The family of this 77-nucleotide RNA sequence from Crocodylus porosus is "Mammalian CPEB3 ribozyme". It scores 48 bits against the family's covariance model. NCBI's taxonomy places the organism under Eukaryota, Eumetazoa, Sauropsida, Archelosauria, Crocodylus.
RNA sequence: GGUUGUAAGUCUGAGGCUAUCGCAGAAGUGCUCACAGUGCAGCCCUGUCAGAUUCCAAUGAAUCAGCAAAUUCUGCU
Numbered sequence: 001g002g003u004u005g006u007a008a009g010u011c012u013g014a015g016g017c018u019a020u021c022g023c024a025g026a027a028g029u030g031c032u033c034a035c036a037g038u039g040c041a042g043c044c045c046u047g048u049c050a051g052a053u054u055c056c057a058a059u060g061a062a063u064c065a066g067c068a069a070a071u072u073c074u075g076c077u
Stems, first nucleotide, its partner, number of pairs: 013045001015044004022076006028040003049066001051064005